[Rfam]
RNA: SAM riboswitch aptamer (S box leader)
Organism: Aquibacillus salsiterrae
RNA sequence: CUCUUAUCAAGAGUGGUGGAGGGACUGGCCCAAUGAAACCCGGCAACCAUCAAGUUAACCCUUGGAAAGGUGCCAAUUCCUAACGAUGCAACUUGCUUUGACAGAUGAGAG
Numbered sequence: 001c002u003c004u005u006a007u008c009a010a011g012a013g014u015g016g017u018g019g020a021g022g023g024a025c026u027g028g029c030c031c032a033a034u035g036a037a038a039c040c041c042g043g044c045a046a047c048c049a050u051c052a053a054g055u056u057a058a059c060c061c062u063u064g065g066a067a068a069g070g071u072g073c074c075a076a077u078u079c080c081u082a083a084c085g086a087u088g089c090a091a092c093u094u095g096c097u098u099u100g101a102c103a104g105a106u107g108a109g110a111g
Stems, first nucleotide, its partner, number of pairs: 001111008013041001015040003021031003026082002028079001042074004047070002050065003078103001084100003088096002